[Rfam]
RNA: serC leader
Organism: Methylocella tundrae
RNA sequence: AGACGGGACACCCCUCCCCAACGAGGGGCGCCCAUCUGUAAGGAUGGCAAAA
Numbered sequence: 001a002g003a004c005g006g007g008a009c010a011c012c013c014c015u016c017c018c019c020a021a022c023g024a025g026g027g028g029c030g031c032c033c034a035u036c037u038g039u040a041a042g043g044a045u046g047g048c049a050a051a052a
Base pairs, nucleotide, nucleotide: 011028012027013026014025015024016023032047033046034045035044036043037042